[Rfam]
RNA sequence: CUUCGCUAGUCAAGCCAGCGAAGAAAGUGAUUGGGAAACAACGGCUUACGGUCUUAGUAAACGUCUCGUUUCCCGCUCCAAA
Dot-bracket structure: (((((((.(.....).))))))).....((.((((((((...(((.....((....))....)))..)))))))).))....
RNA: Proteobacterial sRNA sX8